[Rfam]
RNA: Mammalian CPEB3 ribozyme
Organism: Alligator sinensis
RNA sequence: GGUUGCAAGUUUGAGGCCACAGCAGAAGUGCUCAUGGUGCGGCCCUAUCGGACUCGGACAGAUCUGUGAAUUCUGCU
Numbered sequence: 001g002g003u004u005g006c007a008a009g010u011u012u013g014a015g016g017c018c019a020c021a022g023c024a025g026a027a028g029u030g031c032u033c034a035u036g037g038u039g040c041g042g043c044c045c046u047a048u049c050g051g052a053c054u055c056g057g058a059c060a061g062a063u064c065u066g067u068g069a070a071u072u073c074u075g076c077u
Base pairs, nucleotide, nucleotide: 013045015044016043017042018041021077022076023075024074025073026072027071028040029039030038049066050065051064052063054061